[Rfam]
RNA: Small nucleolar RNA SNORA67
Nucleotides: 142
Stems, first nucleotide, its partner, number of pairs: 002064006009057002019049003023042006075132001078130001085123001092115001094113003
Number, partner (000 for none) and nucleotide at each position: 001000a002064u003063c004062c005061a006060a007059g008000g009057u010056g011000a012000u013000u014000c015000c016000c017000u018000c019049u020048c021047c022000a023042a024041g025040a026039g027038g028037c029000c030000a031000g032000c033000u034000a035000g036000u037028g038027c039026c040025u041024c042023u043000c044000u045000c046000a047021g048020g049019a050000a051000a052000g053000u054000a055000g056010c057009a058000a059007c060006u061005u062004g063003g064002a065000a066000u067000a068000a069000a070000a071000u072000c073000u074000g075132g076000c077000a078130u079000g080000c081000c082000u083000a084000a085123g086000g087000u088000c089000u090000c091000u092115g093000g094113g095112g096111g097000a098000c099000a100000g101000g102000g103000g104000a105000u106000g107000c108000u109000a110000a111096u112095u113094u114000c115092c116000u117000u118000u119000g120000c121000c122000u123085u124000c125000c126000c127000u128000u129000g130078g131000c132075u133000g134000c135000c136000u137000a138000c139000a140000u141000g142000c